[Rfam]
RNA sequence: GGUUUCCAUUGGUGCAAAUCCAAUCCCUAGAUUUGAGAGAAAAGCAAAUUCCCCAUUGGUAGCAAAUAGUAUCCAUGAAGCGGAGGAAAUAGUAU
Number, nucleotide and partner (000 for none) at each position: 001g000002g000003u000004u000005u000006c000007c000008a000009u023010u022011g021012g020013u000014g000015c000016a000017a000018a000019u000020c012021c011022a010023a009024u000025c000026c000027c000028u000029a000030g000031a000032u000033u000034u000035g000036a000037g000038a000039g000040a000041a000042a000043a000044g000045c000046a000047a000048a000049u000050u000051c085052c000053c083054c082055a076056u075057u000058g073059g072060u071061a070062g000063c069064a000065a000066a000067u000068a000069g063070u061071a060072u059073c058074c000075a056076u055077g000078a000079a000080g000081c000082g054083g053084a000085g051086g000087a000088a000089a000090u000091a000092g000093u000094a000095u000
Shown here is a 95-nucleotide RNA from Musa balbisiana, a member of the family "Plastid-rps12 3UTR RNA". By type it is a cis-regulatory element. NCBI's taxonomy places the organism under Eukaryota, Magnoliopsida, Mesangiospermae, Liliopsida, Musa. For this family Rfam cites "Retrograde signaling in plants: A critical review focusing on the GUN pathway and beyond" (Richter et al., Plant Commun, 2023). Plastid rpl20 is a non-coding RNA (ncRNA) recognised in plastids.